Background:
The family of this 393-nucleotide sequence from Methylosinus sporium is "Bacterial RNase P class A". Taxonomically the source falls in Methylosinus (Bacteria, Pseudomonadati, Hyphomicrobiales, Methylocystaceae). Ribonuclease P (RNase P) is a ubiquitous endoribonuclease, found in archaea, bacteria and eukarya as well as chloroplasts and mitochondria. Pairs were carried over by alignment from the consensus structure, which is taken from published work.

RNA sequence: CCAGUCGGCUGGAUGGCCGCUGUCCUUCGGGAUAGAGGAAAGUCCGGGCUCCACGGAGACACGGCGCCGGAUAAUGUCCGGCGGGGGCGACCCCAGGGAAAGCGCCACAGAAAGCAAACCGCCGCGACCCUCGGGCCCGCGGCAAGGGUGAAAGGGUGCGGUAAGAGCGCACCGCUCGGGCGGCGACGUUCGAGGCAUGGCAAGCCCCGCCGGGAGCAAGACCGAAUAGGGGCGACUGGAAAUAGCGAUAUUUCCCGGCCCGUCUCCGGGCCGUCGCCCGGGUUGGUCGCUAGAGGCGGCGCGCAAGCGUCGUCCCAGAGGAAUGGCCAUCGCGCGUGGGCGGGGAAACCAAGCCGCGCCAUACAGAACCCGGCUUAUAGGCCGACUGGCGAU
Numbered sequence: 001c002c003a004g005u006c007g008g009c010u011g012g013a014u015g016g017c018c019g020c021u022g023u024c025c026u027u028c029g030g031g032a033u034a035g036a037g038g039a040a041a042g043u044c045c046g047g048g049c050u051c052c053a054c055g056g057a058g059a060c061a062c063g064g065c066g067c068c069g070g071a072u073a074a075u076g077u078c079c080g081g082c083g084g085g086g087g088c089g090a091c092c093c094c095a096g097g098g099a100a101a102g103c104g105c106c107a108c109a110g111a112a113a114g115c116a117a118a119c120c121g122c123c124g125c126g127a128c129c130c131u132c133g134g135g136c137c138c139g140c141g142g143c144a145a146g147g148g149u150g151a152a153a154g155g156g157u158g159c160g161g162u163a164a165g166a167g168c169g170c171a172c173c174g175c176u177c178g179g180g181c182g183g184c185g186a187c188g189u190u191c192g193a194g195g196c197a198u199g200g201c202a203a204g205c206c207c208c209g210c211c212g213g214g215a216g217c218a219a220g221a222c223c224g225a226a227u228a229g230g231g232g233c234g235a236c237u238g239g240a241a242a243u244a245g246c247g248a249u250a251u252u253u254c255c256c257g258g259c260c261c262g263u264c265u266c267c268g269g270g271c272c273g274u275c276g277c278c279c280g281g282g283u284u285g286g287u288c289g290c291u292a293g294a295g296g297c298g299g300c301g302c303g304c305a306a307g308c309g310u311c312g313u314c315c316c317a318g319a320g321g322a323a324u325g326g327c328c329a330u331c332g333c334g335c336g337u338g339g340g341c342g343g344g345g346a347a348a349c350c351a352a353g354c355c356g357c358g359c360c361a362u363a364c365a366g367a368a369c370c371c372g373g374c375u376u377a378u379a380g381g382c383c384g385a386c387u388g389g390c391g392a393u
Stems, first nucleotide, its partner, number of pairs: 001389010011378001012331007020035006040376003044373005049216004058265001062212005067081005082096001083094004097207002102205002104201003119147002121143005126137001128135002155173006174196001175194008220288004230279006257272005295314008